Overview:
The record is an 82-nucleotide RNA, which matches "S6-S18-Chlorobi ribosomal protein leader" in Rfam. The sequence is in the family's curated seed alignment.
RNA sequence: UUGCAGGUGGUGAUUGUCAUUUUCCUAAAUGAUGAUGCCGAGGGGAGCGGUCUGCGCAAUGCCGUUUUCCGCAUUCUUGCAG
Numbered sequence: 001u002u003g004c005a006g007g008u009g010g011u012g013a014u015u016g017u018c019a020u021u022u023u024c025c026u027a028a029a030u031g032a033u034g035a036u037g038c039c040g041a042g043g044g045g046a047g048c049g050g051u052c053u054g055c056g057c058a059a060u061g062c063c064g065u066u067u068u069c070c071g072c073a074u075u076c077u078u079g080c081a082g
Stems, first nucleotide, its partner, number of pairs: 001082006007074002010072003013036010042069004047065004